[Rfam]
The family of this 54-nucleotide RNA from Cyprinus carpio is "UnaL2 LINE 3' element". The family's RNA type in Rfam is cis-regulatory element. Pairs were carried over by alignment from the consensus structure, which is taken from published work. Rfam's curators write: The eel long interspersed element (LINE) UnaL2 and its partner short interspersed element (SINE) share a conserved 3' tail containing a stem-loop that is critical for their retrotransposition. Presumably, the first step of retrotransposition is the recognition of their 3' tails by UnaL2-encoded reverse transcriptase. The family has 30 seed sequences and 493,311 matches in Rfam 15.1. A search with the family's covariance model found it, with a score of 56 bits. A reference for the family is Baba et al. (2004), "Solution structure of an RNA stem-loop derived from the 3' conserved region of eel LINE UnaL2", RNA. Its family is annotated with transposition, RNA-mediated in the Gene Ontology.

RNA sequence: AUUGUCCUCAUUUGUAAGUCACUUUGGAUAAAAGCAUCUGCUAAAUGACUAAUG
Numbered sequence: 001a002u003u004g005u006c007c008u009c010a011u012u013u014g015u016a017a018g019u020c021a022c023u024u025u026g027g028a029u030a031a032a033a034g035c036a037u038c039u040g041c042u043a044a045a046u047g048a049c050u051a052a053u054g
Base pairs, nucleotide, nucleotide: 013043014041015040016039022034023033024032025031